RNA: Small nucleolar RNA SNORA31
RNA sequence: CUGCAUCCACUGAUAGACCUUGAACAAUUUACUGUUGUUCUUUUGGUUUGCACUAGGAUGCAAAAGAAAGAAAUCCCUGCGCUUUCUGUCUGUCUUUGUGGCGGCCCAGAUUGAAUUGGGGAAUACAUCU
Numbered sequence: 001c002u003g004c005a006u007c008c009a010c011u012g013a014u015a016g017a018c019c020u021u022g023a024a025c026a027a028u029u030u031a032c033u034g035u036u037g038u039u040c041u042u043u044u045g046g047u048u049u050g051c052a053c054u055a056g057g058a059u060g061c062a063a064a065a066g067a068a069a070g071a072a073a074u075c076c077c078u079g080c081g082c083u084u085u086c087u088g089u090c091u092g093u094c095u096u097u098g099u100g101g102c103g104g105c106c107c108a109g110a111u112u113g114a115a116u117u118g119g120g121g122a123a124u125a126c127a128u129c130u
Stems, first nucleotide, its partner, number of pairs: 002062007011052002014050006022040007074122006082113001085110004090104005